Rfam assigns this 357-nucleotide RNA from Brachypteracias leptosomus to the family "Nuclear RNase P".
Lineage of the source: Eukaryota > Craniata > Sarcopterygii > Coelurosauria > Brachypteracias.
Ribonuclease P (RNase P) is a ubiquitous endoribonuclease, found in archaea, bacteria and eukarya as well as chloroplasts and mitochondria. Its best characterised activity is the generation of mature 5'-ends of tRNAs by cleaving the 5'-leader elements of precursor-tRNAs. Cellular RNase Ps are ribonucleoproteins. RNA from bacterial RNase Ps retains its catalytic activity in the absence of the protein subunit, i.e. it is a ribozyme.
The match comes from Rfam's covariance-model search (145 bits).
Rfam 15.1 lists 3,848 matches to the family in 1,862 species.
Its family is annotated with ribonuclease P complex, ribonuclease P activity and tRNA processing in the Gene Ontology.

RNA sequence: UCCGGGAGAAGCUCACCGCCGAGGCCACCCACUGGGUGCAACGUCACCCGCGCCCCGCCUCGGGGAAGGUCUGAGGGAAGGGCCGCCCGCGGCUCCAGCAGAGCCCUGCCCGCGAUCUCCAGGGCGGGUGAGCCACCAGCAAGGGGGGGCGCCGCGUCAACCCAACCGGGCCCGGCCUGGGCAGGAGAAGCCGAGCCGGCUGCGUUCAGGUACCGGGUAAAGCCGCCCUCGCGUCAGCCCCGGCGGAUGCUCGUGGCCCCGCGGUGCUUUGAGACAGACUCACGGCCGGCAACGCUGAGUCCAAUGGGUGAGGUGGGGCAUGGCCCUACAACCCAAUUCAGACUACUCUCUCCCGGA
Numbered sequence: 001u002c003c004g005g006g007a008g009a010a011g012c013u014c015a016c017c018g019c020c021g022a023g024g025c026c027a028c029c030c031a032c033u034g035g036g037u038g039c040a041a042c043g044u045c046a047c048c049c050g051c052g053c054c055c056c057g058c059c060u061c062g063g064g065g066a067a068g069g070u071c072u073g074a075g076g077g078a079a080g081g082g083c084c085g086c087c088c089g090c091g092g093c094u095c096c097a098g099c100a101g102a103g104c105c106c107u108g109c110c111c112g113c114g115a116u117c118u119c120c121a122g123g124g125c126g127g128g129u130g131a132g133c134c135a136c137c138a139g140c141a142a143g144g145g146g147g148g149g150c151g152c153c154g155c156g157u158c159a160a161c162c163c164a165a166c167c168g169g170g171c172c173c174g175g176c177c178u179g180g181g182c183a184g185g186a187g188a189a190g191c192c193g194a195g196c197c198g199g200c201u202g203c204g205u206u207c208a209g210g211u212a213c214c215g216g217g218u219a220a221a222g223c224c225g226c227c228c229u230c231g232c233g234u235c236a237g238c239c240c241c242g243g244c245g246g247a248u249g250c251u252c253g254u255g256g257c258c259c260c261g262c263g264g265u266g267c268u269u270u271g272a273g274a275c276a277g278a279c280u281c282a283c284g285g286c287c288g289g290c291a292a293c294g295c296u297g298a299g300u301c302c303a304a305u306g307g308g309u310g311a312g313g314u315g316g317g318g319c320a321u322g323g324c325c326c327u328a329c330a331a332c333c334c335a336a337u338u339c340a341g342a343c344u345a346c347u348c349u350c351u352c353c354c355g356g357a
Base pairs, nucleotide, nucleotide: 001357002356003355004354007351008350009349012312013311014310015309016308017307020062021061022060023059024058034049035048036047037046038045071341072340073339074338075337081287082286083285084284091105092104093103094102095101106127107126108125109124110123111122128283129282130281131280132279134277148268149267150266151265152264153263154262155261156260313329314328315327316326317325318324319323